[Rfam]
Ribosomal protein L10 leader: a 131-nucleotide RNA from Eubacterium sp. CAG:156. Taxonomically the source falls in Eubacterium (Bacteria, Bacillati, Bacillota, Eubacteriales). On this family, see Iben and Draper, Biochemistry 2008: "Specific interactions of the L10(L12)4 ribosomal protein complex with mRNA, rRNA, and L11". It is annotated as a cis-regulatory leader. The family's consensus secondary structure was predicted with CMfinder.
RNA sequence: AGUGGUUAAUACCAAUUGCCGAAGACAGUAGGUGACAUUAGUCGUAAAUCAUAAGAUGCCUACCGAGGGAUAAGAAUUUUUAAUGACUUAUACACCUCUCUGUCUAGGCAGAGAGGUUUUUAUAUUGAAAA
Numbered sequence: 001a002g003u004g005g006u007u008a009a010u011a012c013c014a015a016u017u018g019c020c021g022a023a024g025a026c027a028g029u030a031g032g033u034g035a036c037a038u039u040a041g042u043c044g045u046a047a048a049u050c051a052u053a054a055g056a057u058g059c060c061u062a063c064c065g066a067g068g069g070a071u072a073a074g075a076a077u078u079u080u081u082a083a084u085g086a087c088u089u090a091u092a093c094a095c096c097u098c099u100c101u102g103u104c105u106a107g108g109c110a111g112a113g114a115g116g117u118u119u120u121u122a123u124a125u126u127g128a129a130a131a
Stems, first nucleotide, its partner, number of pairs: 028063006034043003095116009